mraW RNA: a 113-nucleotide sequence from Amycolatopsis keratiniphila.
The family's RNA type in Rfam is cis-regulatory element.
Pairs were carried over by alignment from the consensus structure, which is taken from published work.

RNA sequence: GUCCACACGGAUGCCGUGAGGCCUCUGUCCGCUCAGUGGCCCUGGUACACCUUCCCCGGUACCAGGUCAGCAGGCGGGCGGACAGGGACCUGACGGCAUCCGGCAUCUUCCCC
Numbered sequence: 001g002u003c004c005a006c007a008c009g010g011a012u013g014c015c016g017u018g019a020g021g022c023c024u025c026u027g028u029c030c031g032c033u034c035a036g037u038g039g040c041c042c043u044g045g046u047a048c049a050c051c052u053u054c055c056c057c058g059g060u061a062c063c064a065g066g067u068c069a070g071c072a073g074g075c076g077g078g079c080g081g082a083c084a085g086g087g088a089c090c091u092g093a094c095g096g097c098a099u100c101c102g103g104c105a106u107c108u109u110c111c112c113c
Stems, first nucleotide, its partner, number of pairs: 010100007020090002023087012036071002039068001041066008
Dot-bracket structure: .........(((((((...((.((((((((((((.((.(.((((((((..........)))))))).).))....)))))))))))).))...))))))).............